[Rfam]
RNA sequence: UGCCUCAGCAUUGUACCCAGAGUCUGCCCUUCAGACAUUGCACCUGGAGCUGGGGGCGAAAAUAAAAGGUUUUU
Numbered sequence: 001u002g003c004c005u006c007a008g009c010a011u012u013g014u015a016c017c018c019a020g021a022g023u024c025u026g027c028c029c030u031u032c033a034g035a036c037a038u039u040g041c042a043c044c045u046g047g048a049g050c051u052g053g054g055g056g057c058g059a060a061a062a063u064a065a066a067a068g069g070u071u072u073u074u
Stems, first nucleotide, its partner, number of pairs: 005053005017047004022036005